Source information
Rfam assigns this 70-nucleotide RNA sequence from Rodentolepis nana to the family "HDV ribozyme from F. prausnitzii". Its family is annotated with catalytic activity in the Gene Ontology. Taxonomically the source falls in Rodentolepis (Eukaryota, Metazoa, Rhabditophora, Eucestoda). Rfam 15.1 lists 3,803 matches to the family in 91 species. The match comes from Rfam's covariance-model search (50 bits).

[Rfam]
RNA sequence: GGUGUGCGAAAGACUUACCUCCACGUGGUGCAUACUGGGCAACGUAUACUCAUACGGCAAAAAAGUCAAU
Numbered sequence: 001g002g003u004g005u006g007c008g009a010a011a012g013a014c015u016u017a018c019c020u021c022c023a024c025g026u027g028g029u030g031c032a033u034a035c036u037g038g039g040c041a042a043c044g045u046a047u048a049c050u051c052a053u054a055c056g057g058c059a060a061a062a063a064a065g066u067c068a069a070u
Stems, first nucleotide, its partner, number of pairs: 001036007017029003043056005
The literature on the family includes a 2009 paper in Science by Webb et al., "Widespread occurrence of self-cleaving ribozymes".